[Rfam]
RNA: mir-183 microRNA precursor family
Organism: Rattus norvegicus
Nucleotides: 074
Stems, first nucleotide, its partner, number of pairs: 003072004008067006016057003022053009
Number, partner (000 for none) and nucleotide at each position: 001000u002000c003072c004071u005070g006069u007000g008067u009066a010065u011064g012063g013062c014000a015000c016057u017056g018055g019000u020000a021000g022053a023052a024051u025050u026049c027048a028047c029046u030045g031000u032000g033000a034000a035000c036000a037000g038000u039000c040000u041000c042000g043000g044000u045030c046029a047028g048027u049026g050025a051024a052023u053022u054000a055018c056017c057016g058000a059000a060000g061000g062013g063012c064011c065010a066009u067008a068000a069006a070005c071004a072003g073000a074000g